[Rfam]
RNA sequence: GUUUAACAGGUCCCCAUGACCUUGGUAGUUUUCCGCCGCAGUGAUAUACCAUCAAUCAAAACGAUAUCACCGGGUGAAAAACUACCAAGGUCGGGUCACCUGUC
Numbered sequence: 001g002u003u004u005a006a007c008a009g010g011u012c013c014c015c016a017u018g019a020c021c022u023u024g025g026u027a028g029u030u031u032u033c034c035g036c037c038g039c040a041g042u043g044a045u046a047u048a049c050c051a052u053c054a055a056u057c058a059a060a061a062c063g064a065u066a067u068c069a070c071c072g073g074g075u076g077a078a079a080a081a082c083u084a085c086c087a088a089g090g091u092c093g094g095g096u097c098a099c100c101u102g103u104c
Stems, first nucleotide, its partner, number of pairs: 017093006024086009034076004039072001041070006